The record is a 101-nucleotide RNA sequence from Molossus molossus, which matches "Vault RNA" in Rfam. The family's RNA type in Rfam is non-coding RNA gene. NCBI's taxonomy places the organism under Eukaryota, Vertebrata, Mammalia, Theria, Molossus. Pairs were carried over by alignment from the consensus structure, which is taken from published work. The literature on the family includes a 2009 paper in Mol Biol Evol by Stadler et al., "Evolution of Vault RNAs".
RNA sequence: GGGCUGGUUCCAGCUCAGCGGUUCCUUCGCAUGAGCUUCCAGCCUGCUGACCACUCGCUGCGAGGGUGGUUCGAGACCCGCGGGUGCUCUCCAGCCCCUUU
Numbered sequence: 001g002g003g004c005u006g007g008u009u010c011c012a013g014c015u016c017a018g019c020g021g022u023u024c025c026u027u028c029g030c031a032u033g034a035g036c037u038u039c040c041a042g043c044c045u046g047c048u049g050a051c052c053a054c055u056c057g058c059u060g061c062g063a064g065g066g067u068g069g070u071u072c073g074a075g076a077c078c079c080g081c082g083g084g085u086g087c088u089c090u091c092c093a094g095c096c097c098c099u100u101u
Stems, first nucleotide, its partner, number of pairs: 002096006013085004018081004026075004